[Rfam]
RNA sequence: UCCUCUAAAAUGAAAAGAUAUCGUAUAUGUCCGAAAAUAGGGUUCGGAUGUUUCUACCGGGUUACCGUAAAUGACCCGACUACGAGCGGAAUAAAUACAUAG
Numbered sequence: 001u002c003c004u005c006u007a008a009a010a011u012g013a014a015a016a017g018a019u020a021u022c023g024u025a026u027a028u029g030u031c032c033g034a035a036a037a038u039a040g041g042g043u044u045c046g047g048a049u050g051u052u053u054c055u056a057c058c059g060g061g062u063u064a065c066c067g068u069a070a071a072u073g074a075c076c077c078g079a080c081u082a083c084g085a086g087c088g089g090a091a092u093a094a095a096u097a098c099a100u101a102g
Stems, first nucleotide, its partner, number of pairs: 021085005029049007058078007

Rfam assigns this 102-nucleotide sequence from Listeria fleischmannii to the family "Purine riboswitch aptamer". The base pairs follow the family's consensus structure, which is taken from published work. Its family is annotated with purine nucleobase biosynthetic process in the Gene Ontology. Rfam 15.1 lists 4,097 matches to the family in 1,411 species.